[Rfam]
RNA: mir-1 microRNA precursor family
RNA sequence: CCUGUUGCGACGUACUUCUUUACAUCGCCAUACUAACGUCGAAAAGAGCUAUGGAAUGUAAAGAAGUAUGUAGUGGCGGA
Numbered sequence: 001c002c003u004g005u006u007g008c009g010a011c012g013u014a015c016u017u018c019u020u021u022a023c024a025u026c027g028c029c030a031u032a033c034u035a036a037c038g039u040c041g042a043a044a045a046g047a048g049c050u051a052u053g054g055a056a057u058g059u060a061a062a063g064a065a066g067u068a069u070g071u072a073g074u075g076g077c078g079g080a
Stems, first nucleotide, its partner, number of pairs: 007074002010071016028054005